[Rfam]
A member of the RNA family "Selenocysteine transfer RNA" from Polarella glacialis, 91 nucleotides long. Taxonomically the source falls in Polarella (Eukaryota, Alveolata, Dinophyceae, Suessiales).
RNA sequence: GUCAGGGUGAGUCGGGCUGGUGCUCGGACUAGACUUCAAUUCAACUAUAGGGGCAUGGGGACAUGAAGGAGUUCGAUUCUCCCUCCUUGAC
Numbered sequence: 001g002u003c004a005g006g007g008u009g010a011g012u013c014g015g016g017c018u019g020g021u022g023c024u025c026g027g028a029c030u031a032g033a034c035u036u037c038a039a040u041u042c043a044a045c046u047a048u049a050g051g052g053g054c055a056u057g058g059g060g061a062c063a064u065g066a067a068g069g070a071g072u073u074c075g076a077u078u079c080u081c082c083c084u085c086c087u088u089g090a091c
Base pairs, nucleotide, nucleotide: 001091002090003089004088005087006086007085009083012027013026014025015024016023017022028046030044032042033041048065049064051062068082069081070080071079